[Rfam]
RNA sequence: AGGCCUGGAGAGAGGCAGGGUCUGAUCCACAGCCUCCGUGGCAGCUAUUGAUCAGCCGUUGCCUCUCUUUCUCCA
Numbered sequence: 001a002g003g004c005c006u007g008g009a010g011a012g013a014g015g016c017a018g019g020g021u022c023u024g025a026u027c028c029a030c031a032g033c034c035u036c037c038g039u040g041g042c043a044g045c046u047a048u049u050g051a052u053c054a055g056c057c058g059u060u061g062c063c064u065c066u067c068u069u070u071c072u073c074c075a
Stems, first nucleotide, its partner, number of pairs: 008069011020057001022055006031046003
The family of this 75-nucleotide RNA sequence from Myotis davidii is "mir-574 microRNA precursor family".
A search with the family's covariance model found it, with a score of 80 bits.